[Rfam]
RNA sequence: CCCACUAUUCCGUUAGUGGUAGCCUAGUGCCACCUGCAUCUGCGGCAACAAGGAUGUUGGGAAGCUGGCACGACAAAGUAGCCCUUUGCGAUAUGCAAGAAGUGGAAACCGUGAGGUGGAAACAAAACUGCGAGCAUCAAUGCGGUUAGGGAG
Number, nucleotide and partner (000 for none) at each position: 001c000002c019003c018004a017005c016006u015007a014008u000009u000010c000011c000012g000013u000014u007015a006016g005017u004018g003019g002020u000021a000022g000023c000024c000025u000026a000027g000028u070029g069030c068031c067032a066033c061034c060035u059036g057037c056038a055039u054040c053041u052042g000043c000044g049045g000046c000047a000048a000049c044050a000051a000052g041053g040054a039055u038056g037057u036058u000059g035060g034061g033062a000063a000064g000065c000066u032067g031068g030069c029070a028071c000072g000073a000074c000075a000076a000077a000078g000079u000080a000081g000082c000083c000084c000085u099086u098087u097088g096089c000090g000091a000092u000093a000094u000095g000096c088097a087098a086099g085100a000101a000102g123103u122104g000105g000106a000107a000108a000109c116110c115111g000112u000113g000114a000115g110116g109117u000118g000119g000120a000121a000122a103123c102124a000125a000126a000127a146128c145129u144130g143131c142132g141133a000134g000135c000136a000137u000138c000139a000140a000141u132142g131143c130144g129145g128146u127147u000148a000149g000150g000151g000152a000153g000
This 153-nucleotide sequence belongs to the Rfam family "Group II catalytic intron D1-D4-7".
Gene Ontology term of the family: Group II intron splicing.
Rfam describes the family as follows. Group II introns are found in rRNA, tRNA and mRNA of organelles in fungi, plants and protists, and also in mRNA in bacteria.